[Rfam]
RNA sequence: AAUUCUGGGUAAUCGCGAUCAUCAUCUGAUGGUUGAGGAAAGUCCAUGCUCGCACAAGCUGAGAUGCUUGUAGUGUUCGUGCUUAGCGAAAAAAUAAGCUAAGGCAAUUUUAUAUUGACGGCGAAAGAAACGGCUAAGGCUUCGGCUAUGCCCGAGUAUUUUGUAAAGUGCCACAGUGACGAUACUAUUCUGGAAACGGUCUAGGUGGAACGGGUAAACCCCUCGAGCGAGCAACCCAAACUUUGGUAGGGGCACUCUUUCUAAGGAAAUGAACGAGGGAAAGAGGCAGAAAUGCAGAUAGAUGAUUACCAUCACAUUAAAGUGCCUGACUUUUUUGUGAAACAGAACAUGGCUUACAGGG
Numbered sequence: 001a002a003u004u005c006u007g008g009g010u011a012a013u014c015g016c017g018a019u020c021a022u023c024a025u026c027u028g029a030u031g032g033u034u035g036a037g038g039a040a041a042g043u044c045c046a047u048g049c050u051c052g053c054a055c056a057a058g059c060u061g062a063g064a065u066g067c068u069u070g071u072a073g074u075g076u077u078c079g080u081g082c083u084u085a086g087c088g089a090a091a092a093a094a095u096a097a098g099c100u101a102a103g104g105c106a107a108u109u110u111u112a113u114a115u116u117g118a119c120g121g122c123g124a125a126a127g128a129a130a131c132g133g134c135u136a137a138g139g140c141u142u143c144g145g146c147u148a149u150g151c152c153c154g155a156g157u158a159u160u161u162u163g164u165a166a167a168g169u170g171c172c173a174c175a176g177u178g179a180c181g182a183u184a185c186u187a188u189u190c191u192g193g194a195a196a197c198g199g200u201c202u203a204g205g206u207g208g209a210a211c212g213g214g215u216a217a218a219c220c221c222c223u224c225g226a227g228c229g230a231g232c233a234a235c236c237c238a239a240a241c242u243u244u245g246g247u248a249g250g251g252g253c254a255c256u257c258u259u260u261c262u263a264a265g266g267a268a269a270u271g272a273a274c275g276a277g278g279g280a281a282a283g284a285g286g287c288a289g290a291a292a293u294g295c296a297g298a299u300a301g302a303u304g305a306u307u308a309c310c311a312u313c314a315c316a317u318u319a320a321a322g323u324g325c326c327u328g329a330c331u332u333u334u335u336u337g338u339g340a341a342a343c344a345g346a347a348c349a350u351g352g353c354u355u356a357c358a359g360g361g
Stems, first nucleotide, its partner, number of pairs: 004361003007357001008310007016035006040355003044352005049231005054071006077226003081222001082103006104119001105117004120221002123162004132152003138147003168219002170215003185204003190199003235251003255285007286295003312340005319333005

Record summary: Bacterial RNase P class B: a 361-nucleotide RNA from Jeotgalibaca porci. NCBI's taxonomy places the organism under Bacteria, Bacillati, Bacillota, Lactobacillales, Jeotgalibaca. Ribonuclease P (RNase P) is a ubiquitous endoribonuclease, found in archaea, bacteria and eukarya as well as chloroplasts and mitochondria.